[Rfam]
RNA: nrdJ RNA
Organism: Streptomyces sp. NRRL WC-3605
RNA sequence: ACGUGCUGCGGGCGGCGAUCAGAGGGUGCCCGCAGCGAGGACAGAACACGUGCCACGGGGAACAUCGGGGCACUUCAGGGCGUU
Numbered sequence: 001a002c003g004u005g006c007u008g009c010g011g012g013c014g015g016c017g018a019u020c021a022g023a024g025g026g027u028g029c030c031c032g033c034a035g036c037g038a039g040g041a042c043a044g045a046a047c048a049c050g051u052g053c054c055a056c057g058g059g060g061a062a063c064a065u066c067g068g069g070g071c072a073c074u075u076c077a078g079g080g081c082g083u084u
Stems, first nucleotide, its partner, number of pairs: 004037011016025001050073005056067002